Rfam assigns this 91-nucleotide RNA from Bucco capensis to the family "Small nucleolar RNA SNORD91 family". The family's RNA type in Rfam is C/D-box small nucleolar RNA. The match comes from Rfam's covariance-model search (60 bits). The organism belongs to Bucco, within Eukaryota. The base pairs follow the family's consensus structure. Its family is annotated with RNA processing and nucleolus in the Gene Ontology. The literature on the family includes a 2001 paper in EMBO J by Huttenhofer et al., "RNomics: an experimental approach that identifies 201 candidates for novel, small, non-messenger RNAs in mouse".
[Rfam]
RNA sequence: GUUGGAAGCCUGUGAUGUCUUAGCCAUGGUGUCUGAACCUGGCUGAAGGACUCUUCUGAAGACACUCCUAGGCUCUGAGGCUUCCAAGGGA
Dot-bracket structure: ...(((((((....................................................................)))))))......
Numbered sequence: 001g002u003u004g005g006a007a008g009c010c011u012g013u014g015a016u017g018u019c020u021u022a023g024c025c026a027u028g029g030u031g032u033c034u035g036a037a038c039c040u041g042g043c044u045g046a047a048g049g050a051c052u053c054u055u056c057u058g059a060a061g062a063c064a065c066u067c068c069u070a071g072g073c074u075c076u077g078a079g080g081c082u083u084c085c086a087a088g089g090g091a
Stems, first nucleotide, its partner, number of pairs: 004085007